[Rfam]
RNA sequence: CCUAUACUUCGGCGAGCGGUCCCCUAAUUGGGGCCCAAAGCCCCAGUUGUGGCAAGUGGUUUCGCGUUUUCGCGGACCCCCUUCCUGGCUGGUGCCCAUGAACGCUUGGAGGCCUCGGUCGCCGGUCGUUCAUGGGGCCCAACUGCAGGCUCUCCGGCCUGCUGCAGGGGUGGACCCACCACCUCGAUCCCGUCCCUCGAGGAACGUCUCGAUGA
Numbered sequence: 001c002c003u004a005u006a007c008u009u010c011g012g013c014g015a016g017c018g019g020u021c022c023c024c025u026a027a028u029u030g031g032g033g034c035c036c037a038a039a040g041c042c043c044c045a046g047u048u049g050u051g052g053c054a055a056g057u058g059g060u061u062u063c064g065c066g067u068u069u070u071c072g073c074g075g076a077c078c079c080c081c082u083u084c085c086u087g088g089c090u091g092g093u094g095c096c097c098a099u100g101a102a103c104g105c106u107u108g109g110a111g112g113c114c115u116c117g118g119u120c121g122c123c124g125g126u127c128g129u130u131c132a133u134g135g136g137g138c139c140c141a142a143c144u145g146c147a148g149g150c151u152c153u154c155c156g157g158c159c160u161g162c163u164g165c166a167g168g169g170g171u172g173g174a175c176c177c178a179c180c181a182c183c184u185c186g187a188u189c190c191c192g193u194c195c196c197u198c199g200a201g202g203a204a205c206g207u208c209u210c211g212a213u214g215a
Base pairs, nucleotide, nucleotide: 018176019175020174021170022169023168024167025166030143031140032139033138034137035136036135040095041094043092044091045090046089047088048087049086054082056080058078059077060076061075062074097134098133099132101130102129103128104127106125107124108123109122111120112119113118145162146161147160148159149158150157182202183201184200185199186198187197

Rfam assigns this 215-nucleotide RNA from Cyanobium usitatum to the family "psaA RNA". Taxonomically the source falls in Cyanobium usitatum (Bacteria, Cyanophyceae, Prochlorococcaceae, Cyanobium). A search with the family's covariance model found it, with a score of 115 bits. Rfam classes the family as a cis-regulatory element.